[Rfam]
RNA sequence: AUCGUUCAUCUUCUUUUUAGUCAGCUACAGCUUCUAGGAGGGAGACGGAAGUAGGGGCUUUCCUCAAGGAACCCGCCCGAAGGAACGCGCC
Dot-bracket structure: ..(((((.((((((((((((.............))))))))))))..[.....(((...................)))....)))))]...
Numbered sequence: 001a002u003c004g005u006u007c008a009u010c011u012u013c014u015u016u017u018u019a020g021u022c023a024g025c026u027a028c029a030g031c032u033u034c035u036a037g038g039a040g041g042g043a044g045a046c047g048g049a050a051g052u053a054g055g056g057g058c059u060u061u062c063c064u065c066a067a068g069g070a071a072c073c074c075g076c077c078c079g080a081a082g083g084a085a086c087g088c089g090c091c
Stems, first nucleotide, its partner, number of pairs: 003087005009045012048088001054078003
The record is a 91-nucleotide RNA from Vasconcelosia minhoensis, which matches "Glutamine riboswitch aptamer (glnA leader)" in Rfam. A search with the family's covariance model found it, with a score of 50 bits. Its family is annotated with glutamine binding in the Gene Ontology. The literature on the family includes a 2011 paper in RNA Biol by Ames and Breaker, "Bacterial aptamers that selectively bind glutamine".